[Rfam]
RNA sequence: UGCGACACCUAUCAAAGGAGUCGUUCUCUAUCCAAGGGCUACCUCAUCAUAUUUCGAAUUC
Numbered sequence: 001u002g003c004g005a006c007a008c009c010u011a012u013c014a015a016a017g018g019a020g021u022c023g024u025u026c027u028c029u030a031u032c033c034a035a036g037g038g039c040u041a042c043c044u045c046a047u048c049a050u051a052u053u054u055c056g057a058a059u060u061c
Base pairs, nucleotide, nucleotide: 017045018044020042021041023039024038025037026036027035
This 61-nucleotide RNA sequence from Gossypium schwendimanii belongs to the Rfam family "Plastid-psbN 5UTR RNA". It is annotated as a cis-regulatory element. From the family's description: Plastid psbN is a non-coding RNA (ncRNA) recognised in plastids. Taxonomically the source falls in Gossypium (Eukaryota, Tracheophyta, eudicotyledons, Pentapetalae). The match comes from Rfam's covariance-model search (60 bits). For this family Rfam cites "The primary transcriptome of barley chloroplasts: numerous noncoding RNAs and the dominating role of the plastid-encoded RNA polymerase" (Zhelyazkova et al., Plant Cell, 2012).